[Rfam]
RNA sequence: CGCGCUCUCGCGGGAGAGACCGGGCCGCUCUCUGGACCCGGAGCCGAAGGCGCAACCGCCCCGGAAACGCUCAGGCAAAAGGACCGCGAAGGCGCA
Numbered sequence: 001c002g003c004g005c006u007c008u009c010g011c012g013g014g015a016g017a018g019a020c021c022g023g024g025c026c027g028c029u030c031u032c033u034g035g036a037c038c039c040g041g042a043g044c045c046g047a048a049g050g051c052g053c054a055a056c057c058g059c060c061c062c063g064g065a066a067a068c069g070c071u072c073a074g075g076c077a078a079a080a081g082g083a084c085c086g087c088g089a090a091g092g093c094g095c096a
Stems, first nucleotide, its partner, number of pairs: 006091001008089006020041004043076003046072002050070003056064002
Rfam assigns this 96-nucleotide RNA from Brevundimonas basaltis to the family "Glycine riboswitch aptamer". Lineage of the source: Bacteria > Pseudomonadati > Pseudomonadota > Caulobacterales > Brevundimonas. The match comes from Rfam's covariance-model search (60 bits). This family represents the bacterial glycine riboswitch.